[Rfam]
RNA sequence: CUGUUCUGCCCUCCUUGGGCGUUUCCUCCCUAGACUUGGACCGCGCUUCAUGCGCGGUCUUUUUUAUUGGCCGCG
Numbered sequence: 001c002u003g004u005u006c007u008g009c010c011c012u013c014c015u016u017g018g019g020c021g022u023u024u025c026c027u028c029c030c031u032a033g034a035c036u037u038g039g040a041c042c043g044c045g046c047u048u049c050a051u052g053c054g055c056g057g058u059c060u061u062u063u064u065u066a067u068u069g070g071c072c073g074c075g
Base pairs, nucleotide, nucleotide: 008020009019010018011017038060039059040058041057042056043055044054045053046052

The family of this 75-nucleotide RNA sequence from Phyllobacterium sp. YR620 is "Makes More Granules Regulator RNA (mmgR)".
The organism belongs to Phyllobacterium, within Bacteria.
The family's RNA type in Rfam is small RNA.
About the family: SuhB later renamed mmgR (makes more granules regulator) was a putative non-coding RNA found multiple times in the Agrobacterium tumefaciens genome and related alpha-proteobacteria. Other non-coding RNAs uncovered in the same analysis include: speF, ybhL, metA, and serC.Several studies inSinorhizobium meliloti showed that suhB element is indeed a non-coding RNA:firstly it was detected on Northern blot and called Sm8RNA, secondly in an RNAseq study referred to as SmelC689.The mutant phenotype's (strain lacking the small RNA) cytoplasm contains higher content of polyhydroxybutyrate (PBH)storage granules than wild type strain. The sRNA is required to limit the PBH intracellular accumulation when the nitrogen-fixing Sinorhizobium meliloti is under condition of surplus carbon in relation to nitrogen. It has been renamed to mmgR. Further study confirmed that mmgR fine-tunes the regulation of PBH storage.Northern blot confirmed the expression of the sRNA in other rhizobia species.
Gene Ontology terms of the family: protein binding, response to nitrogen compound and DNA-templated transcription, termination.